A member of the RNA family "Eukaryotic large subunit ribosomal RNA" from Cladophialophora carrionii, 543 nucleotides of a longer RNA. Taxonomically the source falls in Cladophialophora (Eukaryota, Dikarya, saccharomyceta, Chaetothyriales). It scores 3220 bits against the family's covariance model.
RNA sequence: CCCGAAAGAUGGUGAACUAUGCCUGAAUAGGGUGAAGCCAGAGGAAACUCUGGUGGAGGCUCGCAGCGGUUCUGACGUGCAAAUCGAUCGUCAAAUUUGGGUAUAGGGGCGAAAGACUAAUCGAACCAUUAAGCCACUCGGUGGUUAAGUGUGACCCGAAAGGGCUCGCAAGUGCCGGAUUCUGGCGCGACACUGUCAAAUUGCGGGGACUCCCUAAAGCUCCAUGGGACCGCCCGCUCCACGAAAGUGGAGUUUUUUUAAGGGCACCAGGUUAACGACCUCGGGUACGGUAACACUCCUGGAGAUGCAACAAUGGGUAAUCUGCAGCCAAGUCCUACGGGCGAUCGCCUACGGAUGCAGUUCACAGACUAGAUGGCAGUGGGCUCCCCCCUUCUCGCGGGAGCUUAAGAUAUAGUCGGUCCUCUGGGGAGACCCAGGCGCAUCGCUAAACUGGAGGUGAAGAAUUCUGCCCCCGGGCAGUCACCCCCAGCCGGAACGGUGCGGGCGCCCUCGUGGCGUCGGAGUAAACGCUGGUAGCUGGUU
Numbered sequence: 001c002c003c004g005a006a007a008g009a010u011g012g013u014g015a016a017c018u019a020u021g022c023c024u025g026a027a028u029a030g031g032g033u034g035a036a037g038c039c040a041g042a043g044g045a046a047a048c049u050c051u052g053g054u055g056g057a058g059g060c061u062c063g064c065a066g067c068g069g070u071u072c073u074g075a076c077g078u079g080c081a082a083a084u085c086g087a088u089c090g091u092c093a094a095a096u097u098u099g100g101g102u103a104u105a106g107g108g109g110c111g112a113a114a115g116a117c118u119a120a121u122c123g124a125a126c127c128a129u130u131a132a133g134c135c136a137c138u139c140g141g142u143g144g145u146u147a148a149g150u151g152u153g154a155c156c157c158g159a160a161a162g163g164g165c166u167c168g169c170a171a172g173u174g175c176c177g178g179a180u181u182c183u184g185g186c187g188c189g190a191c192a193c194u195g196u197c198a199a200a201u202u203g204c205g206g207g208g209a210c211u212c213c214c215u216a217a218a219g220c221u222c223c224a225u226g227g228g229a230c231c232g233c234c235c236g237c238u239c240c241a242c243g244a245a246a247g248u249g250g251a252g253u254u255u256u257u258u259u260a261a262g263g264g265c266a267c268c269a270g271g272u273u274a275a276c277g278a279c280c281u282c283g284g285g286u287a288c289g290g291u292a293a294c295a296c297u298c299c300u301g302g303a304g305a306u307g308c309a310a311c312a313a314u315g316g317g318u319a320a321u322c323u324g325c326a327g328c329c330a331a332g333u334c335c336u337a338c339g340g341g342c343g344a345u346c347g348c349c350u351a352c353g354g355a356u357g358c359a360g361u362u363c364a365c366a367g368a369c370u371a372g373a374u375g376g377c378a379g380u381g382g383g384c385u386c387c388c389c390c391c392u393u394c395u396c397g398c399g400g401g402a403g404c405u406u407a408a409g410a411u412a413u414a415g416u417c418g419g420u421c422c423u424c425u426g427g428g429g430a431g432a433c434c435c436a437g438g439c440g441c442a443u444c445g446c447u448a449a450a451c452u453g454g455a456g457g458u459g460a461a462g463a464a465u466u467c468u469g470c471c472c473c474c475g476g477g478c479a480g481u482c483a484c485c486c487c488c489a490g491c492c493g494g495a496a497c498g499g500u501g502c503g504g505g506c507g508c509c510c511u512c513g514u515g516g517c518g519u520c521g522g523a524g525u526a527a528a529c530g531c532u533g534g535u536a537g538c539u540g541g542u543u
Stems, first nucleotide, its partner, number of pairs: 001541002004538001008531001010530001012529002017106011028094001030062004037054007066091004071087002074085002108525001